[Rfam]
RNA sequence: ACAAUGAUACUUCCGUAAUUCGCAGCCCGGUCAUAAAGAAGACGGGGUGGCCGAGAGGCUAAUGG
Number, nucleotide and partner (000 for none) at each position: 001a000002c000003a000004a000005u000006g000007a000008u000009a000010c000011u000012u062013c025014c000015g023016u022017a000018a000019u000020u000021c000022g016023c015024a000025g013026c047027c046028c045029g000030g043031u042032c041033a000034u000035a000036a000037a000038g000039a000040a000041g032042a031043c030044g000045g028046g027047g026048u061049g060050g059051c000052c000053g000054a000055g000056a000057g000058g000059c050060u049061a048062a012063u000064g000065g000
Notes:
pemK RNA: a 65-nucleotide RNA. The sequence is in the family's curated seed alignment. Rfam classes the family as a cis-regulatory element.